[Rfam]
Nucleotides: 116
Stems, first nucleotide, its partner, number of pairs: 011026006028052003034046004084102008
Number, partner (000 for none) and nucleotide at each position: 001000u002000u003000u004000g005000u006000a007000a008000a009000g010000a011026a012025g013024a014023a015022g016021c017000g018000c019000u020000c021016g022015c023014u024013u025012c026011u027000c028052a029051c030050c031000u032000u033000c034046c035045u036044g037043c038000c039000a040000a041000c042000g043037g044036c045035a046034g047000u048000c049000a050030g051029g052028u053000c054000a055000c056000u057000g058000u059000g060000g061000c062000a063000a064000u065000a066000c067000g068000u069000u070000a071000u072000g073000u074000c075000g076000u077000a078000u079000u080000u081000c082000a083000u084102g085101c086100g087099g088098g089097c090096g091095c092000a093000u094000c095091g096090c097089g098088u099087c100086c101085g102084c103000u104000u105000u106000u107000u108000a109000c110000u111000u112000u113000a114000u115000u116000u
The family of this 116-nucleotide RNA sequence from Effusibacillus dendaii is "Ribosomal protein L20 leader".
The family's consensus secondary structure was predicted with CMfinder.
By type it is a cis-regulatory leader.
For this family Rfam cites "Diverse mechanisms for regulating ribosomal protein synthesis in Escherichia coli" (Zengel and Lindahl, Prog Nucleic Acid Res Mol Biol, 1994).
It scores 62 bits against the family's covariance model.
About the family: This family is a putative r-protein leader autoregulatory structure found in B. subtilis and other low-GC Gram-positive bacteria. It is located in the 5' untranslated regions of mRNAs encoding initiation factor 3 followed by ribosomal proteins L35 and L20 (infC-rpmI-rplT). A Rho-independent transcription terminator structure that is probably involved in regulation is included at the 3' end.